[Rfam]
RNA sequence: UGUUGUUGCCAUGAGGACAAACAAGCUCCCUCUUCUGAAGACAUUUGAGGAUGCUUGCUGGCAGAAUCGAACCAAUUAACCUUAUUGCCAUCACUGAGCAA
Numbered sequence: 001u002g003u004u005g006u007u008g009c010c011a012u013g014a015g016g017a018c019a020a021a022c023a024a025g026c027u028c029c030c031u032c033u034u035c036u037g038a039a040g041a042c043a044u045u046u047g048a049g050g051a052u053g054c055u056u057g058c059u060g061g062c063a064g065a066a067u068c069g070a071a072c073c074a075a076u077u078a079a080c081c082u083u084a085u086u087g088c089c090a091u092c093a094c095u096g097a098g099c100a101a
Stems, first nucleotide, its partner, number of pairs: 006101004
The family of this 101-nucleotide RNA from Setaria italica is "Small nucleolar RNA R30/Z108". The literature on the family includes a 2002 paper in Curr Biol by Marker et al., "Experimental RNomics. Identification of 140 Candidates for Small Non-Messenger RNAs in the Plant Arabidopsis thaliana". Gene Ontology terms of the family: nucleolus and RNA processing. Rfam describes the family as follows. snoR30 is a C/D box small nucleolar RNA which acts as a methylation guide for 18S ribosomal RNA in plants. The family has 6 seed sequences and 626 matches in Rfam 15.1. NCBI's taxonomy places the organism under Eukaryota, Spermatophyta, Liliopsida, Petrosaviidae, Setaria. Clan: SNORD100 clan.